[Rfam]
RNA sequence: GCUGAGGUGAUGAUCCUUUCCCCAAAUGAUCGACUCUGAUUAUAAGAUGCGCACUUUAAAUUUCUCUCCGGAGAAAUCAAGCCAAUGAUUCUGAUCGCC
Numbered sequence: 001g002c003u004g005a006g007g008u009g010a011u012g013a014u015c016c017u018u019u020c021c022c023c024a025a026a027u028g029a030u031c032g033a034c035u036c037u038g039a040u041u042a043u044a045a046g047a048u049g050c051g052c053a054c055u056u057u058a059a060a061u062u063u064c065u066c067u068c069c070g071g072a073g074a075a076a077u078c079a080a081g082c083c084a085a086u087g088a089u090u091c092u093g094a095u096c097g098c099c
Base pairs, nucleotide, nucleotide: 001099003097004096005095
Rfam assigns this 99-nucleotide RNA sequence from Asparagus officinalis to the family "Small nucleolar RNA Z103". A search with the family's covariance model found it, with a score of 82 bits. Rfam classes the family as a C/D-box small nucleolar RNA.